[Rfam]
RNA: Histone 3' UTR stem-loop
RNA sequence: CCAACGGCUCUUUUAAGAGCCACCCACUGUUGUCCGCAAAAGGGCU
Numbered sequence: 001c002c003a004a005c006g007g008c009u010c011u012u013u014u015a016a017g018a019g020c021c022a023c024c025c026a027c028u029g030u031u032g033u034c035c036g037c038a039a040a041a042g043g044g045c046u
Stems, first nucleotide, its partner, number of pairs: 006021006